T-box leader: a 276-nucleotide sequence from Ktedonobacter racemifer. Rfam's curators write: Uncharged tRNA acts as the effector for transcription antitermination of genes in the T-box leader family. T-boxes are found upstream of many aminoacyl-tRNA synthetase genes and some amino acid biosynthetic genes usually in Gram-positive bacteria. The anticodon of a specific tRNA base pairs to a specifier sequence within the T-box motif, and the NCCA acceptor tail of the tRNA base pairs to a conserved bulge in the T-box antiterminator hairpin.

RNA sequence: AUGCAAGCGUUGAUGGGACGAGUAACAGUUGUCUCUCACGUUCAGAGAGUGGGCGGUCGGUGGAAAGCCCAUACGUUGAAGAACUGUGAAAAAGACCCGGAUGCUGCGAGAAGAAAUCACGUGAUGACGUGAGAAUAGACCUCGCCGGAGCCCCCGUAAUCGGGCAGUGAGCUAACCGUCAGGUUUGCCCCAGGAGGUUGUCACCGCGAUGUGACAACAAAAGAAGGUGGUACCACGGGAGCCUUUACGAGAAAGUAAGCGCUCUUCGUCCUUUAG
Numbered sequence: 001a002u003g004c005a006a007g008c009g010u011u012g013a014u015g016g017g018a019c020g021a022g023u024a025a026c027a028g029u030u031g032u033c034u035c036u037c038a039c040g041u042u043c044a045g046a047g048a049g050u051g052g053g054c055g056g057u058c059g060g061u062g063g064a065a066a067g068c069c070c071a072u073a074c075g076u077u078g079a080a081g082a083a084c085u086g087u088g089a090a091a092a093a094g095a096c097c098c099g100g101a102u103g104c105u106g107c108g109a110g111a112a113g114a115a116a117u118c119a120c121g122u123g124a125u126g127a128c129g130u131g132a133g134a135a136u137a138g139a140c141c142u143c144g145c146c147g148g149a150g151c152c153c154c155c156g157u158a159a160u161c162g163g164g165c166a167g168u169g170a171g172c173u174a175a176c177c178g179u180c181a182g183g184u185u186u187g188c189c190c191c192a193g194g195a196g197g198u199u200g201u202c203a204c205c206g207c208g209a210u211g212u213g214a215c216a217a218c219a220a221a222a223g224a225a226g227g228u229g230g231u232a233c234c235a236c237g238g239g240a241g242c243c244u245u246u247a248c249g250a251g252a253a254a255g256u257a258a259g260c261g262c263u264c265u266u267c268g269u270c271c272u273u274u275a276g
Stems, first nucleotide, its partner, number of pairs: 007104002014099004025087006038076003049072006107144004146156003197218007224273004235269005